[Rfam]
RNA: terC RNA
RNA sequence: CCGGGGAUCCGGGCCCCUCUGGCAACCGACGGCAGCCGGUUGCGAUGUCGGAACCUUUCA
Numbered sequence: 001c002c003g004g005g006g007a008u009c010c011g012g013g014c015c016c017c018u019c020u021g022g023c024a025a026c027c028g029a030c031g032g033c034a035g036c037c038g039g040u041u042g043c044g045a046u047g048u049c050g051g052a053a054c055c056u057u058u059c060a
Base pairs, nucleotide, nucleotide: 006054008052009051010050011049012048022043023042024041025040026039027038028037